Shown here is a 389-nucleotide RNA sequence from Amycolatopsis antarctica, a member of the family "Bacterial RNase P class A". It is annotated as a ribozyme. Gene Ontology terms of the family: tRNA processing, ribonuclease P activity and dimeric ribonuclease P complex. It scores 302 bits against the family's covariance model.
RNA sequence: CGAGUCGGCAGGGCGGUCGCGGCGUCACCUGGUGGCGUCGAGGAAAGUCCGGACUCCACAGGGCAGGGUGGUUGCUAACGGCAACCCGGGGCGACCCGCGGGACAGUGCCACAGAGAACAGACCGCCUGGCGUUCGCGCCAGGUAAGGGUGAAACGGUGGUGUAAGAGACCACCAGCAUCCCGGGUGACCGGGAUGGCUUGGUAAACCCCACCCGGAGCAAGGCCAAGAGGGAGCGCACGCUCCUGCGCAGGCGUUCGAGGACGGCCCGUCCGAGCCUGCGGGUAGGCCGCUGGAGCCUGCCGGCGACGGCAGGCCGAGAUGGAUGGCCGCCCAUCGCGUCGUCGAGGCGGCGUGGGGACAGGAUCCGGCUUACAUGCCGGCUCGUCCG
Numbered sequence: 001c002g003a004g005u006c007g008g009c010a011g012g013g014c015g016g017u018c019g020c021g022g023c024g025u026c027a028c029c030u031g032g033u034g035g036c037g038u039c040g041a042g043g044a045a046a047g048u049c050c051g052g053a054c055u056c057c058a059c060a061g062g063g064c065a066g067g068g069u070g071g072u073u074g075c076u077a078a079c080g081g082c083a084a085c086c087c088g089g090g091g092c093g094a095c096c097c098g099c100g101g102g103a104c105a106g107u108g109c110c111a112c113a114g115a116g117a118a119c120a121g122a123c124c125g126c127c128u129g130g131c132g133u134u135c136g137c138g139c140c141a142g143g144u145a146a147g148g149g150u151g152a153a154a155c156g157g158u159g160g161u162g163u164a165a166g167a168g169a170c171c172a173c174c175a176g177c178a179u180c181c182c183g184g185g186u187g188a189c190c191g192g193g194a195u196g197g198c199u200u201g202g203u204a205a206a207c208c209c210c211a212c213c214c215g216g217a218g219c220a221a222g223g224c225c226a227a228g229a230g231g232g233a234g235c236g237c238a239c240g241c242u243c244c245u246g247c248g249c250a251g252g253c254g255u256u257c258g259a260g261g262a263c264g265g266c267c268c269g270u271c272c273g274a275g276c277c278u279g280c281g282g283g284u285a286g287g288c289c290g291c292u293g294g295a296g297c298c299u300g301c302c303g304g305c306g307a308c309g310g311c312a313g314g315c316c317g318a319g320a321u322g323g324a325u326g327g328c329c330g331c332c333c334a335u336c337g338c339g340u341c342g343u344c345g346a347g348g349c350g351g352c353g354u355g356g357g358g359a360c361a362g363g364a365u366c367c368g369g370c371u372u373a374c375a376u377g378c379c380g381g382c383u384c385g386u387c388c389g
Stems, first nucleotide, its partner, number of pairs: 001385010011374001012332007020040009045372003049369005054218004061268004066214005071085005086100001087098004101209002106207002108203003123148002125144008156174006176198001177196008222289004248280006260272004296315008